[Rfam]
RNA: Small nucleolar RNA SNORA33
RNA sequence: AAGCCAGGCAAUCAAUCUGCUCAUCUGAAUGUGUUUCUGCAGAAAUUUAGAAGUGGCUGGAAACAGUGGAGCCAUCUUAUGAGCCUUAAGGACAACUAAGGUCACUAUGAUUCCUCGAAAUGGCUAAAAUA
Numbered sequence: 001a002a003g004c005c006a007g008g009c010a011a012u013c014a015a016u017c018u019g020c021u022c023a024u025c026u027g028a029a030u031g032u033g034u035u036u037c038u039g040c041a042g043a044a045a046u047u048u049a050g051a052a053g054u055g056g057c058u059g060g061a062a063a064c065a066g067u068g069g070a071g072c073c074a075u076c077u078u079a080u081g082a083g084c085c086u087u088a089a090g091g092a093c094a095a096c097u098a099a100g101g102u103c104a105c106u107a108u109g110a111u112u113c114c115u116c117g118a119a120a121u122g123g124c125u126a127a128a129a130u131a
Base pairs, nucleotide, nucleotide: 004060005059006058007057016043017042018041019040020039071124072123073122074121083111085109087107088106091103092102093101